[Rfam]
RNA sequence: UCCACCGUGAGGUGGAAUCUGAAGGAAGCUGGAUGUGAGGAACAUACUAACUCACGGGCGAAUCUCUGGUCUGACGAACAGAAAUCACAUAAGAGGCUAUUCAUGAGGGUAAGGCUGCUACACAAGUUAAAGCCCAAUAACUACACGGAUUCAUGGAUGGUAAAUGUGGCAGAUAGAUGGAGAGGAAAGAAACGUGUG
Numbered sequence: 001u002c003c004a005c006c007g008u009g010a011g012g013u014g015g016a017a018u019c020u021g022a023a024g025g026a027a028g029c030u031g032g033a034u035g036u037g038a039g040g041a042a043c044a045u046a047c048u049a050a051c052u053c054a055c056g057g058g059c060g061a062a063u064c065u066c067u068g069g070u071c072u073g074a075c076g077a078a079c080a081g082a083a084a085u086c087a088c089a090u091a092a093g094a095g096g097c098u099a100u101u102c103a104u105g106a107g108g109g110u111a112a113g114g115c116u117g118c119u120a121c122a123c124a125a126g127u128u129a130a131a132g133c134c135c136a137a138u139a140a141c142u143a144c145a146c147g148g149a150u151u152c153a154u155g156g157a158u159g160g161u162a163a164a165u166g167u168g169g170c171a172g173a174u175a176g177a178u179g180g181a182g183a184g185g186a187a188a189g190a191a192a193c194g195u196g197u198g
Stems, first nucleotide, its partner, number of pairs: 001016006051198001053196003059189001063183006069174005085169006096161003100157007107135004113128004

About this RNA: Group II catalytic intron D1-D4-3: a 198-nucleotide RNA sequence from Anaerosporobacter mobilis. The match comes from Rfam's covariance-model search (132 bits).